RNA sequence: GGGUUCAGAGGAUUAAGCUCUGGAGGUAUUAUCAGAUGGUCGGGCCGCCAUCU
Numbered sequence: 001g002g003g004u005u006c007a008g009a010g011g012a013u014u015a016a017g018c019u020c021u022g023g024a025g026g027u028a029u030u031a032u033c034a035g036a037u038g039g040u041c042g043g044g045c046c047g048c049c050a051u052c053u
Base pairs, nucleotide, nucleotide: 005023006022007021008020009019010018034053035052036051037050038049039048040047
A member of the RNA family "nhaA-I RNA", 53 nucleotides long. Pairs were carried over by alignment from the consensus structure, which is taken from published work.